[Rfam]
RNA sequence: GCCGGGCUCAGCAACGCGGGCCUGUAAUCCACGUGGAGGCAUCAAAUUAAUGGGACAUUGUUUCAGCUCAUUGGGCCGGACCUGACGUAGCUAUCUACUGGCCCGCCCAUUCCAAGCCGAGUGUUGGGAAGUGUGGAUCAGGCGAAGGCCUGGCUUACACUUCUCCUAGAGGCGAGGGAACCGCGUGAGGCUGGCUUCACAGAGCAGCGCCCACCUCCCGCUCCCGGCAGUGGAAGGAUUACGGGCCGGUGCUAGUCAGGUUCAGCGUGGUCCAGUGGGCUGAUCCUAAUAGGACCAUUAUUUUU
Dot-bracket structure: (((((((((........))))))....(((....))))))...(((.((((((..(.(((..((((.(((((((((((((((((((.(((.((....((((((((.((.(((((.((((.(.((.(((((((((((.((((((....)))))).)))))))))))(....)(.((((.....((((....(((......)))....))))...)))).))).).))))..)))))))....)))))))))))))))))))))).....)))))))))).))))...)))..)..)))))).))).
Shown here is a 305-nucleotide RNA sequence from Trema orientale, a member of the family "Plant signal recognition particle RNA". Lineage of the source: Eukaryota > Tracheophyta > Gunneridae > fabids > Trema. The base pairs follow the family's consensus structure, which is taken from published work. It scores 256 bits against the family's covariance model.